[Rfam]
RNA sequence: ACUGGUUGAGGUAGUAGGUUGUAUAGUACUGAAUUACAACUUAUGGGAGAGACUGUACGGCCUACUAACUUUCCUGG
Dot-bracket structure: .(.((..(((.((((((((((((((((.............((....))...)))))))))))))))).))).)).).
RNA: let-7 microRNA precursor family